[Rfam]
RNA sequence: GCAAUUAUUGAAGCAUUUGGGCGGUUGACCAUCCCCUUUCUGAAGGGAGGUGGUUAUCAUGACGACAUAUGAAGCAUUUAGUCUAGUUACUCAGAUUACCUUCACUUUAAUAACAACUUUGACACUGAUUGUAACGCUUGUCGUCUGGAUAAACAAAAAGUAACCGCCCAAACUGACAAGGUUUAACGGUUACUUCAUGAAAAUACAAUAAUACCUAGUCAACCGCUCUUAUGCGGUUAAUAAUUGCUACUACCGGGUGGUUCGAGCCACUCGG
Numbered sequence: 001g002c003a004a005u006u007a008u009u010g011a012a013g014c015a016u017u018u019g020g021g022c023g024g025u026u027g028a029c030c031a032u033c034c035c036c037u038u039u040c041u042g043a044a045g046g047g048a049g050g051u052g053g054u055u056a057u058c059a060u061g062a063c064g065a066c067a068u069a070u071g072a073a074g075c076a077u078u079u080a081g082u083c084u085a086g087u088u089a090c091u092c093a094g095a096u097u098a099c100c101u102u103c104a105c106u107u108u109a110a111u112a113a114c115a116a117c118u119u120u121g122a123c124a125c126u127g128a129u130u131g132u133a134a135c136g137c138u139u140g141u142c143g144u145c146u147g148g149a150u151a152a153a154c155a156a157a158a159a160g161u162a163a164c165c166g167c168c169c170a171a172a173c174u175g176a177c178a179a180g181g182u183u184u185a186a187c188g189g190u191u192a193c194u195u196c197a198u199g200a201a202a203a204u205a206c207a208a209u210a211a212u213a214c215c216u217a218g219u220c221a222a223c224c225g226c227u228c229u230u231a232u233g234c235g236g237u238u239a240a241u242a243a244u245u246g247c248u249a250c251u252a253c254c255g256g257g258u259g260g261u262u263c264g265a266g267c268c269a270c271u272c273g274g
Stems, first nucleotide, its partner, number of pairs: 001247005007241003011237001013219002016172008025162001029053003033049001035047003061145007074088001076087001182202003223236004253274009
Notes: Rfam assigns this 274-nucleotide RNA sequence from Ornithinibacillus halophilus to the family "BsrG". Rfam 15.1 lists 614 matches to the family in 343 species. Its family is annotated with autolysis and toxin activity in the Gene Ontology. bsrE, bsrG and bsrH pair through intermolecular interactions with antisense sRNAs. They form type I toxin/antitoxin system that includes an mRNA encoding for a short, toxic peptide (bsrE, bsrG and bsrH) and an antitoxin that is comprised of an antisense RNA. bsrG encodes a 39-amino-acid toxin, and the 180 nucleotide antisense sRNA called SR4 acts as the antitoxin (they overlap by 123 nucleotides). SR4 interaction with the 3'UTR of bsrG RNA promotes bsrG degradation and inhibits its translation. Taxonomically the source falls in Ornithinibacillus (Bacteria, Bacillati, Bacilli, Caryophanales).